[Rfam]
RNA sequence: UUCCAUCUUCAGGGCAGGGUGAAAUUCCCGACCGGCGGUAAAACUUAGUUUGAGCCCGCGAGCGAAUAGGUGCUAUUUGCUGACUCCGUGCAAACCGGAGGCCGACAGUUACAGUCUGGAUGGGAGAAGAUGGAG
Numbered sequence: 001u002u003c004c005a006u007c008u009u010c011a012g013g014g015c016a017g018g019g020u021g022a023a024a025u026u027c028c029c030g031a032c033c034g035g036c037g038g039u040a041a042a043a044c045u046u047a048g049u050u051u052g053a054g055c056c057c058g059c060g061a062g063c064g065a066a067u068a069g070g071u072g073c074u075a076u077u078u079g080c081u082g083a084c085u086c087c088g089u090g091c092a093a094a095c096c097g098g099a100g101g102c103c104g105a106c107a108g109u110u111a112c113a114g115u116c117u118g119g120a121u122g123g124g125a126g127a128a129g130a131u132g133g134a135g
Stems, first nucleotide, its partner, number of pairs: 003133008017029003031115002033104002035059004054102002062080003084100005106118003
Shown here is a 135-nucleotide RNA from Jeotgalibacillus sp. S-D1, a member of the family "FMN riboswitch aptamer (RFN element)". Lineage of the source: Bacteria > Bacillati > Bacilli > Caryophanales > Jeotgalibacillus.